[Rfam]
RNA sequence: GCGAUGAUCAUUUUUGUGAUUUUUGCAAUUAUGUAUUUGAUAAAAAUUGCAUAGUCACAAAAGUGAUGGUCGA
Dot-bracket structure: .((((..(((((((((((((...(((((((..............)))))))..)))))))))))))..)))).